Source information: Shown here is a 134-nucleotide sequence from Harpegnathos saltator, a member of the family "Small Cajal body specific RNA 8". On this family, see Darzacq et al., EMBO J 2002: "Cajal body-specific small nuclear RNAs: a novel class of 2'-O-methylation and pseudouridylation guide RNAs". The source organism's lineage runs through Eukaryota, Pancrustacea, Eumetabola, Apocrita and Harpegnathos. It is annotated as a small Cajal body RNA.
RNA sequence: CGGGAGAUAGAUACUUGAGUUUCAACAAGUUAAGAUUACUUAACAUAAUUCUUCCCAAAAGCAAAGAAAAAAUGCCUUUUGAUGACUGUAACUUGUGAAGUAUUAAUUUACAGACAGAUACGGGGCAUACAUUU
Dot-bracket structure: .(((((........((((...((..........))....))))........)))))...............(((((((.......(((..(.((..........)).)..)))........)))))))......